[Rfam]
RNA: TrxA 5' UTR thermometer
RNA sequence: UGGGGGAAGUAGGCUAUUACUAUAACCAACAAGGCAGACUUAAUCCUGUGGAGUAGAACAUGAGCGAUAAAAUUGUUCACCUGAGCGAC
Number, nucleotide and partner (000 for none) at each position: 001u000002g000003g000004g000005g000006g000007a000008a000009g068010u067011a000012g065013g000014c000015u062016a061017u000018u000019a000020c056021u055022a054023u053024a000025a000026c051027c050028a049029a000030c000031a000032a047033g046034g045035c000036a000037g000038a000039c000040u000041u000042a000043a000044u000045c034046c033047u032048g000049u028050g027051g026052a000053g023054u022055a021056g020057a000058a000059c000060a000061u016062g015063a000064g000065c012066g000067a010068u009069a000070a000071a000072a000073u088074u087075g086076u085077u084078c083079a000080c000081c000082u000083g078084a077085g076086c075087g074088a073089c000